glmS glucosamine-6-phosphate activated ribozyme aptamer: a 163-nucleotide RNA from Thermoflavimicrobium daqui.

RNA sequence: UUUUGUCGUAAAGCGCCAGGACUGUAAGAGAAUACUUACAGUUGACGAGGAGGAGGAGCAUCGAACGGUCGGCGGAUGCCUCCCGGUGUCACGUCAACACCGAGGAAUCACAGCACAAACCAGCGAGGUGACUUGCUGUCCAAAGGCUGUGAUGUGACGUAUA
Numbered sequence: 001u002u003u004u005g006u007c008g009u010a011a012a013g014c015g016c017c018a019g020g021a022c023u024g025u026a027a028g029a030g031a032a033u034a035c036u037u038a039c040a041g042u043u044g045a046c047g048a049g050g051a052g053g054a055g056g057a058g059c060a061u062c063g064a065a066c067g068g069u070c071g072g073c074g075g076a077u078g079c080c081u082c083c084c085g086g087u088g089u090c091a092c093g094u095c096a097a098c099a100c101c102g103a104g105g106a107a108u109c110a111c112a113g114c115a116c117a118a119a120c121c122a123g124c125g126a127g128g129u130g131a132c133u134u135g136c137u138g139u140c141c142a143a144a145g146g147c148u149g150u151g152a153u154g155u156g157a158c159g160u161a162u163a
Stems, first nucleotide, its partner, number of pairs: 020043008052083005061072004084102006107153007121138007
About this RNA: Rfam's curators write: This entry contains a glucosamine-6-phosphate activated ribozyme that is found in the mRNA for GlmS. GlmS is an enzyme that uses fructose-6-phosphate and glutamine to generate glucosamine-6-phosphate. The base pairs follow the family's consensus structure, which is taken from published work. NCBI's taxonomy places the organism under Bacteria, Bacilli, Caryophanales, Thermoactinomycetaceae, Thermoflavimicrobium.